The record is a 78-nucleotide RNA sequence from Enterobacteriaceae bacterium strain FGI 57, which matches "ABC transporter regulator" in Rfam. The family's RNA type in Rfam is cis-regulatory element. On this family, see Chao et al., EMBO J 2012: "An atlas of Hfq-bound transcripts reveals 3' UTRs as a genomic reservoir of regulatory small RNAs". The base pairs follow the family's consensus structure, which is taken from published work. The organism belongs to Enterobacteriaceae, within Bacteria. The match comes from Rfam's covariance-model search (75 bits).
RNA sequence: AUUACCCAUCGUGAUGUGGUAUUGCAGUCAGUAAGGUAUUGAUUGCAUAGGGCGAUAUUUUAUCGCCCUUUAUUUUAU
Numbered sequence: 001a002u003u004a005c006c007c008a009u010c011g012u013g014a015u016g017u018g019g020u021a022u023u024g025c026a027g028u029c030a031g032u033a034a035g036g037u038a039u040u041g042a043u044u045g046c047a048u049a050g051g052g053c054g055a056u057a058u059u060u061u062a063u064c065g066c067c068c069u070u071u072a073u074u075u076u077a078u
Base pairs, nucleotide, nucleotide: 024046025045026044027043028042029041030040031039049069050068051067052066053065054064055063056062057061